Background: A member of the RNA family "c-di-AMP riboswitch aptamer (ydaO/yuaA leader)" from Desulfosporosinus metallidurans, 144 nucleotides long. It scores 90 bits against the family's covariance model. Rfam's curators write: This family represents a conserved RNA structure found upstream of the ydaO and yuaA genes in Bacillus subtilis and related genes in other bacteria. The ydaO/yuaA element is thought to act as a genetic 'off' switch for the ydaO and yuaA genes in its native state. It is believed that the element may be triggered during osmotic shock leading to activation of ydaO, a predicted amino acid transporter gene, and members of the yuaA-yubG operon which code for KtrA and KtrB K+ transporters. Lineage of the source: Bacteria > Bacillati > Clostridia > Eubacteriales > Desulfosporosinus.
RNA sequence: ACAUUCAAAAAGCUGAAUCCAAAUUUAAUGUACUUGGAACGGGGGAUUAUAUUGGGGUGAAUCACGUGACCCUUUUCGCGUGUAGGGCAAACACCUUCUGCCCGAAUCCGUCAACUAACCUCGUAAGCUAAGAAAGGUGGAAAA
Numbered sequence: 001a002c003a004u005u006c007a008a009a010a011a012g013c014u015g016a017a018u019c020c021a022a023a024u025u026u027a028a029u030g031u032a033c034u035u036g037g038a039a040c041g042g043g044g045g046a047u048u049a050u051a052u053u054g055g056g057g058u059g060a061a062u063c064a065c066g067u068g069a070c071c072c073u074u075u076u077c078g079c080g081u082g083u084a085g086g087g088c089a090a091a092c093a094c095c096u097u098c099u100g101c102c103c104g105a106a107u108c109c110g111u112c113a114a115c116u117a118a119c120c121u122c123g124u125a126a127g128c129u130a131a132g133a134a135a136g137g138u139g140g141a142a143a144a
Stems, first nucleotide, its partner, number of pairs: 011129004018038005039124006049053001055109003063082006085103004